[Rfam]
RNA sequence: UCAGGCAGAUCAGACCACCUGCGUUUUGGCGUCACUCUACUAUAUAGUACACGCUAGGGUAAGGUCCGGGAAAAGUCACCAUGUUUCUUGCUGGAGACCCUGCGAACAGCGGGGUGAGCUGCGACCAGAAACUUUUGUUGGCCGUGCGCGUGGAGGCCACGAAACUGCAGGCGAGGCUGGGCGGAGAAAUCCAUCUUGUCCUCUCUGUUUUUCGUGGCGGCAGUUGACGCUUCUCUCUUGAGUAAAGCUGAUGCUAAUUCUGCGCGUGCGGUUUGGAAGUUACGCUCUCUGACGGAAUCGGCUUGGAUGCAGUGCAAUACGCAGGGUGCCAGCACGUCUUUCUUGGAAGGCGGUGCGGGCAUUUACUCAAUCCGGACUAUGGUCACCAGA
Number, nucleotide and partner (000 for none) at each position: 001u390002c389003a000004g387005g000006c000007a000008g000009a383010u382011c381012a000013g000014a000015c324016c000017a000018c321019c000020u319021g000022c000023g000024u000025u000026u000027u056028g055029g054030c053031g052032u000033c000034a000035c000036u000037c000038u000039a000040c000041u000042a000043u000044a000045u000046a000047g000048u000049a000050c000051a000052c031053g030054c029055u028056a027057g000058g000059g000060u000061a000062a000063g000064g000065u000066c375067c374068g373069g372070g371071a000072a000073a000074a000075g293076u292077c291078a290079c000080c000081a000082u000083g000084u096085u095086u094087c093088u000089u000090g000091c000092u000093g087094g086095a085096g084097a000098c114099c113100c112101u111102g110103c109104g000105a000106a000107c000108a000109g103110c102111g101112g100113g099114g098115u000116g289117a288118g287119c000120u000121g285122c284123g283124a000125c000126c000127a000128g000129a000130a000131a000132c000133u000134u000135u000136u000137g272138u271139u270140g000141g000142c000143c000144g000145u000146g000147c000148g000149c000150g000151u000152g000153g000154a000155g000156g000157c000158c000159a000160c000161g000162a000163a000164a000165c000166u000167g000168c000169a000170g000171g000172c000173g000174a000175g000176g000177c000178u000179g000180g000181g000182c000183g000184g000185a000186g000187a000188a000189a000190u000191c000192c000193a000194u000195c000196u000197u000198g000199u000200c000201c000202u000203c000204u000205c000206u000207g000208u000209u000210u000211u000212u000213c000214g000215u000216g000217g000218c000219g000220g000221c000222a000223g000224u000225u000226g000227a000228c000229g000230c000231u000232u000233c000234u000235c000236u000237c000238u000239u000240g000241a000242g000243u000244a000245a000246a000247g000248c000249u000250g000251a000252u000253g000254c000255u000256a000257a000258u000259u000260c000261u000262g000263c000264g000265c000266g000267u000268g000269c000270g139271g138272u137273u000274u000275g000276g000277a000278a000279g000280u000281u000282a000283c123284g122285c121286u000287c118288u117289c116290u078291g077292a076293c075294g000295g000296a000297a000298u000299c000300g000301g000302c000303u000304u000305g000306g000307a000308u000309g000310c000311a000312g000313u000314g000315c000316a000317a000318u000319a020320c000321g018322c000323a000324g015325g000326g362327u361328g360329c359330c358331a000332g356333c355334a354335c353336g000337u000338c000339u000340u000341u000342c000343u000344u000345g000346g000347a000348a000349g000350g000351c000352g000353g335354u334355g333356c332357g000358g330359g329360c328361a327362u326363u000364u000365a000366c000367u000368c000369a000370a000371u070372c069373c068374g067375g066376a000377c000378u000379a000380u000381g011382g010383u009384c000385a000386c000387c004388a000389g002390a001
Rfam assigns this 390-nucleotide sequence from Coemansia sp. RSA 638 to the family "Nuclear RNase P". The family's RNA type in Rfam is ribozyme. The source organism's lineage runs through Eukaryota, Opisthokonta, Kickxellomycetes, Kickxellales and Coemansia. It scores 46 bits against the family's covariance model.